The record is a 61-nucleotide sequence from Shewanella woodyi, which matches "Pseudomonas sRNA P26" in Rfam. For this family Rfam cites "Identification of 17 Pseudomonas aeruginosa sRNAs and prediction of sRNA-encoding genes in 10 diverse pathogens using the bioinformatic tool sRNAPredict2" (Livny et al., Nucleic Acids Res, 2006). It scores 44 bits against the family's covariance model. The family's consensus secondary structure was predicted with RNAalifold. The organism belongs to Shewanella woodyi, within Bacteria.

[Rfam]
RNA sequence: AAUUUUAACUUACUAGCCUGAGCAAUCAGGCGAGGGCUGGCGGUUUUUUAACCGUCGGCCU
Number, nucleotide and partner (000 for none) at each position: 001a000002a000003u000004u000005u000006u000007a000008a000009c000010u000011u000012a000013c000014u032015a000016g031017c030018c029019u000020g000021a000022g000023c000024a000025a000026u000027c000028a000029g018030g017031c016032g014033a000034g000035g060036g059037c058038u057039g056040g055041c054042g053043g052044u051045u000046u000047u000048u000049u000050a000051a044052c043053c042054g041055u040056c039057g038058g037059c036060c035061u000